[Rfam]
RNA sequence: UCUCGAUAAAGGCAAACCUGAUGAAAAUCAGCGGCGCAAAGCUACAGGGGCUAAGGUGUAAAUCUUAUUACACUAUGCCAGCCAGUUACCGAA
Numbered sequence: 001u002c003u004c005g006a007u008a009a010a011g012g013c014a015a016a017c018c019u020g021a022u023g024a025a026a027a028u029c030a031g032c033g034g035c036g037c038a039a040a041g042c043u044a045c046a047g048g049g050g051c052u053a054a055g056g057u058g059u060a061a062a063u064c065u066u067a068u069u070a071c072a073c074u075a076u077g078c079c080a081g082c083c084a085g086u087u088a089c090c091g092a093a
Stems, first nucleotide, its partner, number of pairs: 012037002018031005040087004047083002049079003056073006
Dot-bracket structure: ...........((....(((((....)))))....))..((((...(((((....((((((......))))))...)))..))))))......